[Rfam]
RNA sequence: AUUGGCUCAACGGGGUGCGAUUUAUAUACGCUGAGAUUCAUACUCGUCGAACCUGAUCCAGUUAAUGCUGGCGAAGGGAUUUGGGUCUGAUAAAUGU
Dot-bracket structure: .....(((((((((.((((.........)))........)..)))).....(((...((((......))))...)))...)))))............
Numbered sequence: 001a002u003u004g005g006c007u008c009a010a011c012g013g014g015g016u017g018c019g020a021u022u023u024a025u026a027u028a029c030g031c032u033g034a035g036a037u038u039c040a041u042a043c044u045c046g047u048c049g050a051a052c053c054u055g056a057u058c059c060a061g062u063u064a065a066u067g068c069u070g071g072c073g074a075a076g077g078g079a080u081u082u083g084g085g086u087c088u089g090a091u092a093a094a095u096g097u
Stems, first nucleotide, its partner, number of pairs: 006085005011046004016040001017031003052077003058071004
The record is a 97-nucleotide RNA sequence from Thorsellia anophelis, which matches "TPP riboswitch aptamer (THI element)" in Rfam. The source organism's lineage runs through Bacteria, Enterobacterales, Thorselliaceae, Thorsellia and Thorsellia anophelis.